RNA: Archaeal large subunit ribosomal RNA, nucleotides 2087 to 2666
RNA sequence: CUCCUAAUGGGAAGUGAAGACCCCGUGGAGCUUUACUGCAGCCUGUCGUUGAGUUACGGUGUUACUUGCGCAGUGUAGAUGGGAGGUGUUAUAUCCGUUCUUUUCGGAGGACGGGGAGCCAACAAUGAGACACCAUCCUUGUUACUCUGUAACUCUCACUCCUUUGUGAGGACAUCGAUAGGUAGGCAGUUUGGGUGGGGCGCCACACCCUCGAAAAAAUAUCAAGGGUGCCCUAAGGUCAACUCAUGUGAGUCAGAAACUCACAGGAGAGUGUCAAGAGCAUAAGUUGGCCUGACGCGAUCAUGAAAAGCAAAUGAUCGCGAGAGGAAACUCGGGUCUAACGAACCAAUAUGUCCUUUUGGUGAGGGCUAUUGACUACAGAAAAGCUACCCCGGGGAUAACAGAGUCGUCGCCGGCAAGAGCACAUAUCGACCCGGCGGCUUGCUACCUCGAUGUCGGUUCUUUCCAUCCUGGCUGUGCAGCAGCAGCCAAGGGUGAGGUUGUUCGCCUAUUAAAGGGGAUCGUGAGCUGGGUUUAGACCGUCGUGAGACAGGUCGGUUACUAUCUAUUAGGAGUGUCA
Numbered sequence: 001c002u003c004c005u006a007a008u009g010g011g012a013a014g015u016g017a018a019g020a021c022c023c024c025g026u027g028g029a030g031c032u033u034u035a036c037u038g039c040a041g042c043c044u045g046u047c048g049u050u051g052a053g054u055u056a057c058g059g060u061g062u063u064a065c066u067u068g069c070g071c072a073g074u075g076u077a078g079a080u081g082g083g084a085g086g087u088g089u090u091a092u093a094u095c096c097g098u099u100c101u102u103u104u105c106g107g108a109g110g111a112c113g114g115g116g117a118g119c120c121a122a123c124a125a126u127g128a129g130a131c132a133c134c135a136u137c138c139u140u141g142u143u144a145c146u147c148u149g150u151a152a153c154u155c156u157c158a159c160u161c162c163u164u165u166g167u168g169a170g171g172a173c174a175u176c177g178a179u180a181g182g183u184a185g186g187c188a189g190u191u192u193g194g195g196u197g198g199g200g201c202g203c204c205a206c207a208c209c210c211u212c213g214a215a216a217a218a219a220u221a222u223c224a225a226g227g228g229u230g231c232c233c234u235a236a237g238g239u240c241a242a243c244u245c246a247u248g249u250g251a252g253u254c255a256g257a258a259a260c261u262c263a264c265a266g267g268a269g270a271g272u273g274u275c276a277a278g279a280g281c282a283u284a285a286g287u288u289g290g291c292c293u294g295a296c297g298c299g300a301u302c303a304u305g306a307a308a309a310g311c312a313a314a315u316g317a318u319c320g321c322g323a324g325a326g327g328a329a330a331c332u333c334g335g336g337u338c339u340a341a342c343g344a345a346c347c348a349a350u351a352u353g354u355c356c357u358u359u360u361g362g363u364g365a366g367g368g369c370u371a372u373u374g375a376c377u378a379c380a381g382a383a384a385a386g387c388u389a390c391c392c393c394g395g396g397g398a399u400a401a402c403a404g405a406g407u408c409g410u411c412g413c414c415g416g417c418a419a420g421a422g423c424a425c426a427u428a429u430c431g432a433c434c435c436g437g438c439g440g441c442u443u444g445c446u447a448c449c450u451c452g453a454u455g456u457c458g459g460u461u462c463u464u465u466c467c468a469u470c471c472u473g474g475c476u477g478u479g480c481a482g483c484a485g486c487a488g489c490c491a492a493g494g495g496u497g498a499g500g501u502u503g504u505u506c507g508c509c510u511a512u513u514a515a516a517g518g519g520g521a522u523c524g525u526g527a528g529c530u531g532g533g534u535u536u537a538g539a540c541c542g543u544c545g546u547g548a549g550a551c552a553g554g555u556c557g558g559u560u561a562c563u564a565u566c567u568a569u570u571a572g573g574a575g576u577g578u579c580a
Stems, first nucleotide, its partner, number of pairs: 001575008010567003014562002022396004027392002029388005035190004042182007051155009061145002064142002068138001078137005085120003098111005159170003193206001194204003207229005232336002238291006244270002247265006271281002296322009324333001326331001347374005353369005405446003409443001410440007420430002457532001458530004462524001463521005470495002474489005498510004538556004542551003